[Rfam]
RNA sequence: UAAUAUUAUCAAGAAUCCCAAAAGUUGGGUAGCAACCUGCAACAACAAGCAAGGUGCUGAAAUCGAUAAGCCGCCUCCGGAAAAAAUGUUGAUUAU
Numbered sequence: 001u002a003a004u005a006u007u008a009u010c011a012a013g014a015a016u017c018c019c020a021a022a023a024g025u026u027g028g029g030u031a032g033c034a035a036c037c038u039g040c041a042a043c044a045a046c047a048a049g050c051a052a053g054g055u056g057c058u059g060a061a062a063u064c065g066a067u068a069a070g071c072c073g074c075c076u077c078c079g080g081a082a083a084a085a086a087u088g089u090u091g092a093u094u095a096u
Stems, first nucleotide, its partner, number of pairs: 006069005015030001017029005031058003036054003039050002045090001071080003
Rfam assigns this 96-nucleotide RNA from Elizabethkingia argenteiflava to the family "SAM-I/IV (S-adenosyl methionine) riboswitch aptamer". The literature on the family includes a 2008 paper in RNA by Weinberg et al., "The aptamer core of SAM-IV riboswitches mimics the ligand-binding site of SAM-I riboswitches". Lineage of the source: Bacteria > Pseudomonadati > Bacteroidota > Weeksellaceae > Elizabethkingia.